[Rfam]
RNA sequence: AAGAGAAUAGGAGAGACAAAUCUAUGUCUCUUGCAUUGAGAAGAACAUUGAGGCAUAGGAAAAAAAAAAGGAAUUGCUGAGAUAUCAUUUCAAUCGUCAUCUUUUUGUAUCGGUGAUUUGAUUGUUUCUCGUCCAUAU
Number, nucleotide and partner (000 for none) at each position: 001a000002a000003g000004a000005g000006a000007a037008u000009a000010g034011g000012a000013g030014a029015g028016a027017c026018a025019a000020a000021u000022c000023u000024a000025u018026g017027u016028c015029u014030c013031u000032u000033g000034c010035a000036u000037u007038g000039a000040g000041a000042a000043g000044a000045a000046c000047a000048u000049u000050g000051a000052g000053g000054c000055a000056u000057a000058g000059g000060a000061a000062a000063a000064a000065a000066a000067a000068a000069a000070g000071g000072a000073a000074u000075u000076g133077c000078u131079g130080a129081g128082a000083u000084a122085u121086c120087a119088u000089u000090u000091c000092a000093a117094u116095c115096g114097u113098c112099a000100u000101c000102u000103u000104u000105u000106u000107g000108u000109a000110u000111c000112g098113g097114u096115g095116a094117u093118u000119u087120g086121a085122u084123u000124g000125u000126u000127u000128c081129u080130c079131g078132u000133c076134c000135a000136u000137a000138u000
Rfam assigns this 138-nucleotide RNA sequence from Carya illinoinensis to the family "Small nucleolar RNA snoR111". The match comes from Rfam's covariance-model search (65 bits). The literature on the family includes a 2002 paper in Curr Biol by Marker et al., "Experimental RNomics: identification of 140 candidates for small non-messenger RNAs in the plant Arabidopsis thaliana". Taxonomically the source falls in Carya (Eukaryota, Tracheophyta, Gunneridae, Fagales). Its family is annotated with RNA processing and nucleolus in the Gene Ontology.